Record summary
The family of this 227-nucleotide sequence from Sorghum bicolor is "MIR6217 microRNA precursor family". Its family is annotated with miRNA-mediated post-transcriptional gene silencing and RISC complex in the Gene Ontology.
RNA sequence: UGGCUAUAAAAUAACAUAUUCUAUAGCCAUUUUGAGUUACGAUAAUAACUAUGUUAAUUUAUAAGAUUAUAGUAACUUCUUACUAAGUGGUUUGCUAUAACGUUACAAUAAAUAAUCUCAUAUGUUAUAGUAACUCAACUAUCGUAAAUAUGUAUACAUUUUAUCGUAAAUUAGUAAUAAAAUUAUUAUAAAUAAAAAUAGCUACAGAAUAACUUAUUAUAUAUAUA
Numbered sequence: 001u002g003g004c005u006a007u008a009a010a011a012u013a014a015c016a017u018a019u020u021c022u023a024u025a026g027c028c029a030u031u032u033u034g035a036g037u038u039a040c041g042a043u044a045a046u047a048a049c050u051a052u053g054u055u056a057a058u059u060u061a062u063a064a065g066a067u068u069a070u071a072g073u074a075a076c077u078u079c080u081u082a083c084u085a086a087g088u089g090g091u092u093u094g095c096u097a098u099a100a101c102g103u104u105a106c107a108a109u110a111a112a113u114a115a116u117c118u119c120a121u122a123u124g125u126u127a128u129a130g131u132a133a134c135u136c137a138a139c140u141a142u143c144g145u146a147a148a149u150a151u152g153u154a155u156a157c158a159u160u161u162u163a164u165c166g167u168a169a170a171u172u173a174g175u176a177a178u179a180a181a182a183u184u185a186u187u188a189u190a191a192a193u194a195a196a197a198a199u200a201g202c203u204a205c206a207g208a209a210u211a212a213c214u215u216a217u218u219a220u221a222u223a224u225a226u227a
Base pairs, nucleotide, nucleotide: 001227002226005223006222007221008220010218011217012216013215014214017211018210019209020208021207022206024204025203026202027201029199030198031197032196033195037191038190039189041187042186043185044184045183046182050177052176053175054174055173056172057171058170059169060168061167062166065165066164067163069161071159072157073156074155080147081146082145083144087142088141089140090139091138092137093132094131095130096129097128098127099126100125101124102123103122108116